[Rfam]
RNA: TPP riboswitch aptamer (THI element)
RNA sequence: CAAAUAGAACAGGGGUGCUUUUAAGGCUGAGAAAUACCCUCAUUAACUGAUCUAGUUAGUACUAGCGUAGUGAGUUUCUGUAUUUUUUGA
Numbered sequence: 001c002a003a004a005u006a007g008a009a010c011a012g013g014g015g016u017g018c019u020u021u022u023a024a025g026g027c028u029g030a031g032a033a034a035u036a037c038c039c040u041c042a043u044u045a046a047c048u049g050a051u052c053u054a055g056u057u058a059g060u061a062c063u064a065g066c067g068u069a070g071u072g073a074g075u076u077u078c079u080g081u082a083u084u085u086u087u088u089g090a
Stems, first nucleotide, its partner, number of pairs: 007077004011040004016034001017027004046071004052065004